RNA sequence: UCCAGCAGUAGUCAGCUGUUCAGGCAUUUGCCGUGCCUGUAAUGGUGUUACACUGCUGGGACAGUGACCUGCUCUGGUCUGGCUCCAGGGGGCGCUGUUGUAGCAUCCUUCAGAGUUCAGGCUGAGGCGGGAGAGCCCUUUGAGCUAGGACUGAGUCUGAUUUACUGUGGCUCAGUCCUUGACAAGAGGCCUCACAGC
Numbered sequence: 001u002c003c004a005g006c007a008g009u010a011g012u013c014a015g016c017u018g019u020u021c022a023g024g025c026a027u028u029u030g031c032c033g034u035g036c037c038u039g040u041a042a043u044g045g046u047g048u049u050a051c052a053c054u055g056c057u058g059g060g061a062c063a064g065u066g067a068c069c070u071g072c073u074c075u076g077g078u079c080u081g082g083c084u085c086c087a088g089g090g091g092g093c094g095c096u097g098u099u100g101u102a103g104c105a106u107c108c109u110u111c112a113g114a115g116u117u118c119a120g121g122c123u124g125a126g127g128c129g130g131g132a133g134a135g136c137c138c139u140u141u142g143a144g145c146u147a148g149g150a151c152u153g154a155g156u157c158u159g160a161u162u163u164a165c166u167g168u169g170g171c172u173c174a175g176u177c178c179u180u181g182a183c184a185a186g187a188g189g190c191c192u193c194a195c196a197g198c
Stems, first nucleotide, its partner, number of pairs: 001060009011051002015046006021039005068131006075124007083115003089108003094104003133193003136189002138186002148178003152174006
RNA: Small nucleolar RNA SNORA74